mir-8799 microRNA precursor family: a 92-nucleotide sequence from Canis lupus. The family has 7 seed sequences and 20,638 matches in Rfam 15.1.

[Rfam]
Nucleotides: 092
Stems, first nucleotide, its partner, number of pairs: 001092001004089003009084002013079001016078002019075003023071004027065003030060006039053001041050003
Number, partner (000 for none) and nucleotide at each position: 001092c002000g003000g004089g005088g006087g007000a008000g009084g010083c011000c012000a013079g014000a015000u016078c017077c018000u019075g020074g021073g022000c023071u024070g025069u026068g027065u028064c029063u030060u031059g032058g033057c034056g035055c036000c037000c038000u039053g040000u041050g042049g043048u044000c045000c046000u047000g048043g049042u050041u051000c052000u053039c054000u055035g056034c057033g058032c059031u060030g061000u062000u063029g064028g065027a066000u067000u068026c069025g070024u071023g072000c073021u074020c075019c076000c077017g078016g079013c080000c081000c082000c083010g084009c085000a086000g087006c088005c089004c090000a091000a092001g

Lineage of the source: Eukaryota > Opisthokonta > Amniota > Theria > Canis lupus.